[Rfam]
RNA sequence: AAAGUUCAGGGUGAUGGAGUCCACCAUCAACCACUGCGAUCGGCAGUUGAUGACUCCUAUUUCGAA
Numbered sequence: 001a002a003a004g005u006u007c008a009g010g011g012u013g014a015u016g017g018a019g020u021c022c023a024c025c026a027u028c029a030a031c032c033a034c035u036g037c038g039a040u041c042g043g044c045a046g047u048u049g050a051u052g053a054c055u056c057c058u059a060u061u062u063c064g065a066a
Stems, first nucleotide, its partner, number of pairs: 010025004016057006033047004
RNA: Fluoride riboswitch aptamer (crcB RNA motif)
Organism: Pyrinomonas methylaliphatogenes